[Rfam]
RNA sequence: GAGAACUAACAAUCCAAGCGGUGGAAUGAUGGAGUAACGCCCUGAAACGCCCCCUUAAUACUCCGACUGGCACCAAAGAUGGAAACAUCCGGUGUCAGAAGCUCGGUGAAGGCGGCCGAGAGCAGCCGUAAGAAAUGCUGGAAAGUCACCAGCCCCACGAAAGCCGUCCAGAGGUGGACGGUGCUGCCCAUAGGCCGGAGGUCUACAAA
Numbered sequence: 001g002a003g004a005a006c007u008a009a010c011a012a013u014c015c016a017a018g019c020g021g022u023g024g025a026a027u028g029a030u031g032g033a034g035u036a037a038c039g040c041c042c043u044g045a046a047a048c049g050c051c052c053c054c055u056u057a058a059u060a061c062u063c064c065g066a067c068u069g070g071c072a073c074c075a076a077a078g079a080u081g082g083a084a085a086c087a088u089c090c091g092g093u094g095u096c097a098g099a100a101g102c103u104c105g106g107u108g109a110a111g112g113c114g115g116c117c118g119a120g121a122g123c124a125g126c127c128g129u130a131a132g133a134a135a136u137g138c139u140g141g142a143a144a145g146u147c148a149c150c151a152g153c154c155c156c157a158c159g160a161a162a163g164c165c166g167u168c169c170a171g172a173g174g175u176g177g178a179c180g181g182u183g184c185u186g187c188c189c190a191u192a193g194g195c196c197g198g199a200g201g202u203c204u205a206c207a208a209a
Base pairs, nucleotide, nucleotide: 018052020051021050022049023048031043032042034040053201054200055199056198063106064105065104066103067098068097069096070095071094072093073092074091077088080085113197114196115195116194117193122187123186124185125184126183127159128158129157163182164181165180166179167178168177169176170175
The family of this 209-nucleotide RNA from Faecalibacterium sp. OM04-11BH is "Group II catalytic intron D1-D4-5". From the family's description: Group II introns are found in rRNA, tRNA and mRNA of organelles in fungi, plants and protists, and also in mRNA in bacteria. The literature on the family includes a 2001 paper in Trends Genet by Bonen and Vogel, "The ins and outs of group II introns". The source organism's lineage runs through Bacteria, Bacillati, Clostridia, Eubacteriales and Faecalibacterium.